[Rfam]
RNA sequence: UUGGCAAAGAAUGUGAUAGGGUGAAGAACCCUAGACAGGGUUCAGCCGAGCGAAGCGAGACAACGUUGCUAGCCGAAGGCGUAGUAAAGCAACGGCCCGUAGGGCGAAGUAAAUCCCUAUCUCUCCGCCA
Numbered sequence: 001u002u003g004g005c006a007a008a009g010a011a012u013g014u015g016a017u018a019g020g021g022u023g024a025a026g027a028a029c030c031c032u033a034g035a036c037a038g039g040g041u042u043c044a045g046c047c048g049a050g051c052g053a054a055g056c057g058a059g060a061c062a063a064c065g066u067u068g069c070u071a072g073c074c075g076a077a078g079g080c081g082u083a084g085u086a087a088a089g090c091a092a093c094g095g096c097c098c099g100u101a102g103g104g105c106g107a108a109g110u111a112a113a114u115c116c117c118u119a120u121c122u123c124u125c126c127g128c129c130a
Stems, first nucleotide, its partner, number of pairs: 015121007022113001034105001036103001041101001043099001047057002064094006
Shown here is a 130-nucleotide RNA sequence from Photobacterium gaetbulicola, a member of the family "RtT RNA". Rfam describes the family as follows. This family represents a bacterial cis-regulatory element known as RtT RNA. The exact function of RtT is unknown although it is thought that it may be involved in changing the cellular response in relation to amino acid starvation. By type it is a cis-regulatory element. Lineage of the source: Bacteria > Gammaproteobacteria > Vibrionales > Photobacterium > Photobacterium gaetbulicola.